[Rfam]
This 599-nucleotide part of an RNA from uncultured candidate division WWE3 bacterium EJ0ADIGA11YD11 belongs to the Rfam family "Bacterial large subunit ribosomal RNA". On this family, see Yusupov et al., Science 2001: "Crystal structure of the ribosome at 5.5 A resolution".
RNA sequence: AACUACCGGUGAAGAUGCCGGUUACUCAUUGUUGGACAGAGAGACCCCGUGGAGCUUUACUGUAACUUGGUAUUGGUAAUCGGUUUUAGUUGUGUAGUGUAGGAGGGAGUUCACCCUUAAACCGGUGAACGUCAAUGAAACACCUCUCUUCUAAUAUCGAGAGCCUCACUACUUCGCAUGAUCUGCGAAGGGGACAAUGCCUGGUGGGCAGUUUAUCUGGGGCGGAUUCCUGCUAAAAGGUAACGCAGGAGCUCAAAGGUUCUCUUAACGCCGAUGGAAAUGGCGUUGUAAGUGCAAAGAUAUAUGAGAGCUUGACUGCAAGACUUACAAGUCGCGCAGAUACGAAAGUAGGACUUAGUGAUCUUCCGAGUGCUUAGUGGUAGGCCCGGAACUUAUCGGAUAAAAGCUACCCCGGGGAUAACAGGCUGAUCUUACCCGAGCGUCCACAGCGGCGGUAAGGUUUGGCACCUCGAUGUCGUCUCGUCAUAUCCUGGAGCUGGAGCAGGUUCCAAGGGUCCGGCUGUUCGCCGGUUAAAAUGGCGCGUUAGAUGGGUUCAGAACGUCGUGAGACAGUUCGGUCCAUUUCCACAAUGAGUGUG
Numbered sequence: 001a002a003c004u005a006c007c008g009g010u011g012a013a014g015a016u017g018c019c020g021g022u023u024a025c026u027c028a029u030u031g032u033u034g035g036a037c038a039g040a041g042a043g044a045c046c047c048c049g050u051g052g053a054g055c056u057u058u059a060c061u062g063u064a065a066c067u068u069g070g071u072a073u074u075g076g077u078a079a080u081c082g083g084u085u086u087u088a089g090u091u092g093u094g095u096a097g098u099g100u101a102g103g104a105g106g107g108a109g110u111u112c113a114c115c116c117u118u119a120a121a122c123c124g125g126u127g128a129a130c131g132u133c134a135a136u137g138a139a140a141c142a143c144c145u146c147u148c149u150u151c152u153a154a155u156a157u158c159g160a161g162a163g164c165c166u167c168a169c170u171a172c173u174u175c176g177c178a179u180g181a182u183c184u185g186c187g188a189a190g191g192g193g194a195c196a197a198u199g200c201c202u203g204g205u206g207g208g209c210a211g212u213u214u215a216u217c218u219g220g221g222g223c224g225g226a227u228u229c230c231u232g233c234u235a236a237a238a239g240g241u242a243a244c245g246c247a248g249g250a251g252c253u254c255a256a257a258g259g260u261u262c263u264c265u266u267a268a269c270g271c272c273g274a275u276g277g278a279a280a281u282g283g284c285g286u287u288g289u290a291a292g293u294g295c296a297a298a299g300a301u302a303u304a305u306g307a308g309a310g311c312u313u314g315a316c317u318g319c320a321a322g323a324c325u326u327a328c329a330a331g332u333c334g335c336g337c338a339g340a341u342a343c344g345a346a347a348g349u350a351g352g353a354c355u356u357a358g359u360g361a362u363c364u365u366c367c368g369a370g371u372g373c374u375u376a377g378u379g380g381u382a383g384g385c386c387c388g389g390a391a392c393u394u395a396u397c398g399g400a401u402a403a404a405a406g407c408u409a410c411c412c413c414g415g416g417g418a419u420a421a422c423a424g425g426c427u428g429a430u431c432u433u434a435c436c437c438g439a440g441c442g443u444c445c446a447c448a449g450c451g452g453c454g455g456u457a458a459g460g461u462u463u464g465g466c467a468c469c470u471c472g473a474u475g476u477c478g479u480c481u482c483g484u485c486a487u488a489u490c491c492u493g494g495a496g497c498u499g500g501a502g503c504a505g506g507u508u509c510c511a512a513g514g515g516u517c518c519g520g521c522u523g524u525u526c527g528c529c530g531g532u533u534a535a536a537a538u539g540g541c542g543c544g545u546u547a548g549a550u551g552g553g554u555u556c557a558g559a560a561c562g563u564c565g566u567g568a569g570a571c572a573g574u575u576c577g578g579u580c581c582a583u584u585u586c587c588a589c590a591a592u593g594a595g596u597g598u599g
Base pairs, nucleotide, nucleotide: 005022006021007020008019009018025595026594027593028592029591030590031589032588034587035586036585039581046416047415048414049413051412052411053408054407055406056405057404059212060211061210062209066204067203069201070200071199072198075165076164077163080160081159082158083157084156086154087153088152089151092148102147103146104145105144106143109130110129111128112127113126114125115124169192170191173189174188175187176186177185178184215227216226217225218224228250229249230248231247232246233245251397253353254352259311260310261309262308263307264306265291266290268286269285270284271283272282273281292301293300316339317338318337319336322333323332324331341350342349343348364391365390366389367388368387370385373384374383425466426465427464429463430460431459432458433457434456435455436454440450441449477552478550479549480548481547482544483541484540485539486538487537490515491514493510494509495508496507497506498505517531518530519529520528521527558576559575560574561573562571563570564569